[Rfam]
RNA sequence: AGAAAAGUAGGUGCCGCCCCGCACAGGGGCGACGCCUGAAGCUAGAUAACAAAACGCGGAUGCCAGCGCAAACACAAGCUAACCAAACCGCUGGCACAGCAAACACCGC
Numbered sequence: 001a002g003a004a005a006a007g008u009a010g011g012u013g014c015c016g017c018c019c020c021g022c023a024c025a026g027g028g029g030c031g032a033c034g035c036c037u038g039a040a041g042c043u044a045g046a047u048a049a050c051a052a053a054a055c056g057c058g059g060a061u062g063c064c065a066g067c068g069c070a071a072a073c074a075c076a077a078g079c080u081a082a083c084c085a086a087a088c089c090g091c092u093g094g095c096a097c098a099g100c101a102a103a104c105a106c107c108g109c
Stems, first nucleotide, its partner, number of pairs: 011073002015031006058064002092101002
A member of the RNA family "Burkholderia sRNA Bp1_Cand684_SIPHT" from Paraburkholderia steynii, 109 nucleotides long. Lineage of the source: Bacteria > Pseudomonadati > Betaproteobacteria > Burkholderiaceae > Paraburkholderia. On this family, see Khoo et al., BMC Genomics 2012: "Computational discovery and RT-PCR validation of novel Burkholderia conserved and Burkholderia pseudomallei unique sRNAs". A search with the family's covariance model found it, with a score of 44 bits. Rfam classes the family as a small RNA. Pairs were carried over by alignment from the consensus structure, which was predicted with RNAalifold.